RNA sequence: UUUGUACAUUGGGGGUGCCCAUUAUGGCUGAGAGGAUAACCCAACCCUUUGAACCUGAUCUCAUUCGUCUGAGCGGAGGAAAAUGUGUCUAUUGUUUU
Numbered sequence: 001u002u003u004g005u006a007c008a009u010u011g012g013g014g015g016u017g018c019c020c021a022u023u024a025u026g027g028c029u030g031a032g033a034g035g036a037u038a039a040c041c042c043a044a045c046c047c048u049u050u051g052a053a054c055c056u057g058a059u060c061u062c063a064u065u066c067g068u069c070u071g072a073g074c075g076g077a078g079g080a081a082a083a084u085g086u087g088u089c090u091a092u093u094g095u096u097u098u
Base pairs, nucleotide, nucleotide: 006086007085008084009083010082011048012047013046014045017028018027019026035041054079055078056077060073061072062071063070
RNA: TPP riboswitch aptamer (THI element)
Organism: Legionella tucsonensis